[Rfam]
RNA sequence: UGCUAUGAUGGUGUAAUUUGCGUCUUACUCUGCGUGCAGUGACGGUUUGCCUACUGUCUUAUAGCUGGCGCAGUGGGCUGACGAGAACGUGAUUCUGAGCA
Numbered sequence: 001u002g003c004u005a006u007g008a009u010g011g012u013g014u015a016a017u018u019u020g021c022g023u024c025u026u027a028c029u030c031u032g033c034g035u036g037c038a039g040u041g042a043c044g045g046u047u048u049g050c051c052u053a054c055u056g057u058c059u060u061a062u063a064g065c066u067g068g069c070g071c072a073g074u075g076g077g078c079u080g081a082c083g084a085g086a087a088c089g090u091g092a093u094u095c096u097g098a099g100c101a
Stems, first nucleotide, its partner, number of pairs: 001101003021083004030073005039065002041058005

The record is a 101-nucleotide RNA from Esox lucius, which matches "Small nucleolar RNA SNORD16" in Rfam.
By type it is a C/D-box small nucleolar RNA.
Clan: SNORD16 clan.
A reference for the family is Fragapane et al. (1993), "A novel small nucleolar RNA (U16) is encoded inside a ribosomal protein intron and originates by processing of the pre-mRNA", EMBO J.
The match comes from Rfam's covariance-model search (92 bits).